[Rfam]
RNA sequence: UUUAUUUUGAGGUCGGAAAUGGUUCCCGAUACACUCCAUUUGAAGUACCUGAGAUGCUGGAUGAACCGCCCAGCCCCCAAUAUA
Numbered sequence: 001u002u003u004a005u006u007u008u009g010a011g012g013u014c015g016g017a018a019a020u021g022g023u024u025c026c027c028g029a030u031a032c033a034c035u036c037c038a039u040u041u042g043a044a045g046u047a048c049c050u051g052a053g054a055u056g057c058u059g060g061a062u063g064a065a066c067c068g069c070c071c072a073g074c075c076c077c078c079a080a081u082a083u084a
Base pairs, nucleotide, nucleotide: 001084003082004081005080006079009075012030013029014028015027016026020068021067022066023065024064032051033046034045035044056074057073058072059071060070
Shown here is an 84-nucleotide RNA sequence from Marvinbryantia formatexigens, a member of the family "skipping-rope RNA".
The source organism's lineage runs through Bacteria, Clostridia, Lachnospirales, Lachnospiraceae and Marvinbryantia formatexigens.